Shown here is a 68-nucleotide RNA sequence from Hibiscus trionum, a member of the family "MIR164 microRNA precursor family". Rfam links the family to the GO terms RISC complex and miRNA-mediated post-transcriptional gene silencing. The family's consensus secondary structure was predicted with RNAalifold. Rfam 15.1 lists 201 matches to the family in 125 species. On this family, see Reinhart et al., Genes Dev 2002: "MicroRNAs in plants". Lineage of the source: Eukaryota > Streptophytina > Magnoliopsida > malvids > Hibiscus.
RNA sequence: UGGAGAAGGGGAGCACGUGCAACAAGGCAAAAACAAUGCACUCUUUGCACGUGCCCUGCUUCUCCAAC
Numbered sequence: 001u002g003g004a005g006a007a008g009g010g011g012a013g014c015a016c017g018u019g020c021a022a023c024a025a026g027g028c029a030a031a032a033a034c035a036a037u038g039c040a041c042u043c044u045u046u047g048c049a050c051g052u053g054c055c056c057u058g059c060u061u062c063u064c065c066a067a068c
Base pairs, nucleotide, nucleotide: 001066002065003064004063005062006061007060008059010057011056013054014053015052016051017050018049019048020047021046022045